[Rfam]
A member of the RNA family "c-di-GMP-II-GAG riboswitch aptamer", 129 nucleotides long.

RNA sequence: GAACCGACGGGAACCGUUGAUCCGCGUGGUCCACACCGACGCCGCGGCUCCGCCAGGAGCACGGCGCACGGAGAGACACGGUCGCCUAGACCGCGCGGGGAGGUAGUGGCGAGACCGGCUCGUCCGAGC
Numbered sequence: 001g002a003a004c005c006g007a008c009g010g011g012a013a014c015c016g017u018u019g020a021u022c023c024g025c026g027u028g029g030u031c032c033a034c035a036c037c038g039a040c041g042c043c044g045c046g047g048c049u050c051c052g053c054c055a056g057g058a059g060c061a062c063g064g065c066g067c068a069c070g071g072a073g074a075g076a077c078a079c080g081g082u083c084g085c086c087u088a089g090a091c092c093g094c095g096c097g098g099g100g101a102g103g104u105a106g107u108g109g110c111g112a113g114a115c116c117g118g119c120u121c122g123u124c125c126g127a128g129c
Stems, first nucleotide, its partner, number of pairs: 001129001004126001006124006013104003022098008080116002082112005
Background:
A reference for the family is Weinberg et al. (2017), "Bioinformatic analysis of riboswitch structures uncovers variant classes with altered ligand specificity", Proc Natl Acad Sci U S A. Its Rfam clan is "c-di-GMP_II riboswitch clan". The base pairs follow the family's consensus structure, which is taken from published work. The sequence is in the family's curated seed alignment.